Shown here is a 92-nucleotide RNA sequence, a member of the family "GP20-a RNA".
By type it is a cis-regulatory element.
RNA sequence: AUCCGCCCACCCUGCCGGCGCUUAAAUGCAGGGCAGCCCCGGGCGCGGAGUGGCCGCGCGUUUACAAAUCAAAUCGAGGGUGAGAAAGGAAC
Dot-bracket structure: ....[[[..(((((..]]].........)))))((.((....(((((.......)))))..................)).))..........